RNA sequence: ACCGUCCUUAUCUGGGGGUUGCGCGGCUGCUCGAUGAACGCGUGGUGAGGGCAGCCCUGCUAACGCCUGACACAACACAGGGGCGCCCGUCUCGCACGCGGCGCAAUUUUUGGAACC
Numbered sequence: 001a002c003c004g005u006c007c008u009u010a011u012c013u014g015g016g017g018g019u020u021g022c023g024c025g026g027c028u029g030c031u032c033g034a035u036g037a038a039c040g041c042g043u044g045g046u047g048a049g050g051g052c053a054g055c056c057c058u059g060c061u062a063a064c065g066c067c068u069g070a071c072a073c074a075a076c077a078c079a080g081g082g083g084c085g086c087c088c089g090u091c092u093c094g095c096a097c098g099c100g101g102c103g104c105a106a107u108u109u110u111u112g113g114a115a116c117c
Stems, first nucleotide, its partner, number of pairs: 006018004021060003026055007038046002083104005088098003
U4atac minor spliceosomal RNA: a 117-nucleotide RNA from Corythaixoides concolor. U4atac is an essential component of the minor U12-type spliceosome complex which is required for removal of the rarer class of eukaryotic introns (AT-AC, U12-type). Gene Ontology terms of the family: mRNA 5'-splice site recognition, pre-mRNA 5'-splice site binding and U4atac snRNP. The family's RNA type in Rfam is spliceosomal small nuclear RNA. Taxonomically the source falls in Corythaixoides (Eukaryota, Vertebrata, Gnathostomata, Tetrapoda).